RNA sequence: UCAGACGGUUGGAUGACCGCUCCCCGCCUUCGGGCGGGGGGAGGAAAGUCCGGGCUCCACGGAAGCACGGUGCCGGGUAACGCCCGGCGGGGGCGACCCUAGGGAAAGUGCCACAGAAAGCAAACCGCCCAUGCGCGCCCCGCGACCCGACGGGUUCCCCUUGGGGUUCCCCACGCGGGGCAGGCGGCGGGUAAGGGCGAAAGGGUGCGGUAAGAGCGCACCGCGCCCCCGGCAACGGGGGCGGCACGGUAAACCCCACCGGGAGCAAGACCGAGUAGGAACGGCGCGCGGGCUUCGGCCCGCAGGCGGGCUUUCGCGCUGUCGUUCGGGUGUGUCGCGCGAGGCGUUCGGUAACGAACGUCCCAGAUGAAUGGUCAUCCAUCGCCUUCGGGCGGGGACAGAACCCGGCUUACAGACCGUCUGAUCUC
Numbered sequence: 001u002c003a004g005a006c007g008g009u010u011g012g013a014u015g016a017c018c019g020c021u022c023c024c025c026g027c028c029u030u031c032g033g034g035c036g037g038g039g040g041g042a043g044g045a046a047a048g049u050c051c052g053g054g055c056u057c058c059a060c061g062g063a064a065g066c067a068c069g070g071u072g073c074c075g076g077g078u079a080a081c082g083c084c085c086g087g088c089g090g091g092g093g094c095g096a097c098c099c100u101a102g103g104g105a106a107a108g109u110g111c112c113a114c115a116g117a118a119a120g121c122a123a124a125c126c127g128c129c130c131a132u133g134c135g136c137g138c139c140c141c142g143c144g145a146c147c148c149g150a151c152g153g154g155u156u157c158c159c160c161u162u163g164g165g166g167u168u169c170c171c172c173a174c175g176c177g178g179g180g181c182a183g184g185c186g187g188c189g190g191g192u193a194a195g196g197g198c199g200a201a202a203g204g205g206u207g208c209g210g211u212a213a214g215a216g217c218g219c220a221c222c223g224c225g226c227c228c229c230c231g232g233c234a235a236c237g238g239g240g241g242c243g244g245c246a247c248g249g250u251a252a253a254c255c256c257c258a259c260c261g262g263g264a265g266c267a268a269g270a271c272c273g274a275g276u277a278g279g280a281a282c283g284g285c286g287c288g289c290g291g292g293c294u295u296c297g298g299c300c301c302g303c304a305g306g307c308g309g310g311c312u313u314u315c316g317c318g319c320u321g322u323c324g325u326u327c328g329g330g331u332g333u334g335u336c337g338c339g340c341g342a343g344g345c346g347u348u349c350g351g352u353a354a355c356g357a358a359c360g361u362c363c364c365a366g367a368u369g370a371a372u373g374g375u376c377a378u379c380c381a382u383c384g385c386c387u388u389c390g391g392g393c394g395g396g397g398a399c400a401g402a403a404c405c406c407g408g409c410u411u412a413c414a415g416a417c418c419g420u421c422u423g424a425u426c427u428c
Stems, first nucleotide, its partner, number of pairs: 001424010011413001012379007020041009046411003050408005055265004063314003068261005073087005088102001089100004103256002108254002110250003125196002127192004132187001134186003204222006223245001224243008269336003279327006305320004343362008
Shown here is a 428-nucleotide RNA sequence from Varunaivibrio sulfuroxidans, a member of the family "Bacterial RNase P class A".
Lineage of the source: Bacteria > Pseudomonadati > Alphaproteobacteria > Magnetovibrionaceae > Varunaivibrio.
The family's RNA type in Rfam is ribozyme.